mir-208 microRNA precursor family: a 76-nucleotide RNA sequence from Merluccius polli. Taxonomically the source falls in Merluccius (Eukaryota, Deuterostomia, Gnathostomata, Ctenosquamata). The family's consensus secondary structure was predicted with RNAalifold.
[Rfam]
RNA sequence: UCCGGCGGGUCAGCUUUUUGUUUGUGUUAUGUUGCUUUUAAAAUGUAAGACGAACAAAAAGUUUGUCUGUUAGAUG
Numbered sequence: 001u002c003c004g005g006c007g008g009g010u011c012a013g014c015u016u017u018u019u020g021u022u023u024g025u026g027u028u029a030u031g032u033u034g035c036u037u038u039u040a041a042a043a044u045g046u047a048a049g050a051c052g053a054a055c056a057a058a059a060a061g062u063u064u065g066u067c068u069g070u071u072a073g074a075u076g
Stems, first nucleotide, its partner, number of pairs: 004071003008067002012063007020055001023052002027048006